Nucleotides: 144
Stems, first nucleotide, its partner, number of pairs: 001074001003071003008066002011064003017059001019057002027055003034049003081137007089128002094126004104116003
Number, partner (000 for none) and nucleotide at each position: 001074g002000a003071g004070g005069c006000u007000u008066c009065a010000u011064a012063u013062u014000u015000u016000u017059a018000u019057a020056u021000u022000a023000u024000u025000c026000a027055u028054g029053c030000u031000u032000c033000c034049a035048c036047a037000a038000u039000u040000u041000u042000a043000a044000g045000u046000g047036u048035g049034u050000u051000u052000u053029g054028c055027a056020a057019u058000u059017u060000u061000c062013a063012a064011u065009u066008g067000a068000a069005g070004c071003c072000u073000a074001u075000a076000g077000u078000u079000g080000u081137g082136u083135u084134c085133c086132c087131c088000u089128c090127g091000c092000u093000a094126u095125c096124c097123a098000c099000u100000a101000c102000u103000u104116g105115c106114a107000a108000u109000u110000c111000u112000g113000a114106u115105g116104c117000u118000g119000u120000a121000a122000u123097u124096g125095g126094a127090c128089g129000u130000c131087g132086g133085g134084g135083a136082a137081c138000a139000a140000a141000a142000u143000u144000u